[Rfam]
Nucleotides: 080
Base pairs, nucleotide, nucleotide: 001080002079003078004077005076006075007074008073009072010071011070012069013068014067015066016065017064018063024058025057026056027053028052029051030050031049032048
Number, partner (000 for none) and nucleotide at each position: 001080u002079u003078g004077g005076u006075u007074g008073a009072a010071a011070c012069a013068u014067g015066u016065g017064u018063g019000a020000g021000u022000c023000u024058c025057u026056a027053a028052c029051u030050u031049u032048a033000a034000a035000a036000a037000u038000a039000g040000g041000c042000c043000u044000c045000a046000c047000a048032u049031a050030a051029a052028g053027u054000g055000g056026u057025a058024g059000g060000a061000c062000u063018c064017a065016c066015a067014c068013a069012u070011g071010u072009u073008u074007c075006a076005a077004c078003c079002a080001a
Rfam assigns this 80-nucleotide RNA from Lathyrus oleraceus to the family "MIR5269 microRNA precursor family". Its family is annotated with miRNA-mediated post-transcriptional gene silencing and RISC complex in the Gene Ontology. A search with the family's covariance model found it, with a score of 60 bits.